[Rfam]
RNA sequence: UAAUUUUGUGCUAAGUCAAACUUUUCUAACUUUGACCAAAUUUAUAGAAAAUUAUAUUAAUAUCUACAACACCAAAUAAAUGCACUAACAAGACAUUUCAUGGUGGAUGUUGUAGAUGUUGAUGCAUUUUUCUAUAAACUUGAUCAAAGUUAGAGAAGUUUGACUUGGGACAAAACUAA
Numbered sequence: 001u002a003a004u005u006u007u008g009u010g011c012u013a014a015g016u017c018a019a020a021c022u023u024u025u026c027u028a029a030c031u032u033u034g035a036c037c038a039a040a041u042u043u044a045u046a047g048a049a050a051a052u053u054a055u056a057u058u059a060a061u062a063u064c065u066a067c068a069a070c071a072c073c074a075a076a077u078a079a080a081u082g083c084a085c086u087a088a089c090a091a092g093a094c095a096u097u098u099c100a101u102g103g104u105g106g107a108u109g110u111u112g113u114a115g116a117u118g119u120u121g122a123u124g125c126a127u128u129u130u131u132c133u134a135u136a137a138a139c140u141u142g143a144u145c146a147a148a149g150u151u152a153g154a155g156a157a158g159u160u161u162g163a164c165u166u167g168g169g170a171c172a173a174a175a176c177u178a179a
Stems, first nucleotide, its partner, number of pairs: 005174005011168016031148005045134007055124003059120010072103002
Overview: Rfam assigns this 179-nucleotide RNA sequence from Panicum miliaceum to the family "MIR1435 microRNA precursor family". Taxonomically the source falls in Panicum sect. Panicum (Eukaryota, Embryophyta, Spermatophyta, Liliopsida). The match comes from Rfam's covariance-model search (107 bits). Its family is annotated with RISC complex and miRNA-mediated post-transcriptional gene silencing in the Gene Ontology.